Notes:
The record is a 162-nucleotide sequence from Streptomyces agglomeratus, which matches "c-di-AMP riboswitch aptamer (ydaO/yuaA leader)" in Rfam. The source organism's lineage runs through Bacteria, Bacillati, Actinomycetota, Kitasatosporales and Streptomyces. It scores 74 bits against the family's covariance model. From the family's description: This family represents a conserved RNA structure found upstream of the ydaO and yuaA genes in Bacillus subtilis and related genes in other bacteria.
RNA sequence: GUGCCGUCCACGCCUAAUCCGGCCUGCCCAGAGGCAGUUCGGAGCCGGGGACCCACGCGCACGACCUGGGGUGAAUCAGUCCGCAGUCCCGCGGACCGUAGGGCACCUUCCGUUCCGCCCGAACCCGACAGCUAACCCGGUAGGCGGUCCACGGAAGGAGAU
Numbered sequence: 001g002u003g004c005c006g007u008c009c010a011c012g013c014c015u016a017a018u019c020c021g022g023c024c025u026g027c028c029c030a031g032a033g034g035c036a037g038u039u040c041g042g043a044g045c046c047g048g049g050g051a052c053c054c055a056c057g058c059g060c061a062c063g064a065c066c067u068g069g070g071g072u073g074a075a076u077c078a079g080u081c082c083g084c085a086g087u088c089c090c091g092c093g094g095a096c097c098g099u100a101g102g103g104c105a106c107c108u109u110c111c112g113u114u115c116c117g118c119c120c121g122a123a124c125c126c127g128a129c130a131g132c133u134a135a136c137c138c139g140g141u142a143g144g145c146g147g148u149c150c151a152c153g154g155a156a157g158g159a160g161a162u
Base pairs, nucleotide, nucleotide: 011146012145013144014143018043019042020041021040022039044141045140046139047138048137049136054068055067069126070125071124077098079096080095081094082093083092101120102119103118104117